[Rfam]
RNA sequence: CUUGGCGUCGGUGUAACGGCCGGCGUCGUCGCCGAACUCGGCGAGCACCCGGGCGGCGAGGACCGGUCCCAGACCGGGCUGG
Numbered sequence: 001c002u003u004g005g006c007g008u009c010g011g012u013g014u015a016a017c018g019g020c021c022g023g024c025g026u027c028g029u030c031g032c033c034g035a036a037c038u039c040g041g042c043g044a045g046c047a048c049c050c051g052g053g054c055g056g057c058g059a060g061g062a063c064c065g066g067u068c069c070c071a072g073a074c075c076g077g078g079c080u081g082g
Stems, first nucleotide, its partner, number of pairs: 008044003012040002018038002021034004055079001057077001060075002063072001